[Rfam]
RNA: mir-399 microRNA precursor family
Organism: Actinidia chinensis
RNA sequence: AGGUGCAUUACAAGGCAAAAACUCCGUUGGCAGACGCACACUUGACUCACAUUUCGGCUGCGGGUUCUUUCAAGUGUGCCCUCUGCCAAAGGAAAUUUGCCCAGCAAUUCUUCU
Numbered sequence: 001a002g003g004u005g006c007a008u009u010a011c012a013a014g015g016c017a018a019a020a021a022c023u024c025c026g027u028u029g030g031c032a033g034a035c036g037c038a039c040a041c042u043u044g045a046c047u048c049a050c051a052u053u054u055c056g057g058c059u060g061c062g063g064g065u066u067c068u069u070u071c072a073a074g075u076g077u078g079c080c081c082u083c084u085g086c087c088a089a090a091g092g093a094a095a096u097u098u099g100c101c102c103a104g105c106a107a108u109u110c111u112u113c114u
Base pairs, nucleotide, nucleotide: 005110007108008107009106011104014101015100016099017098018097019096023093024092025091028088029087030086031085032084033083034082036080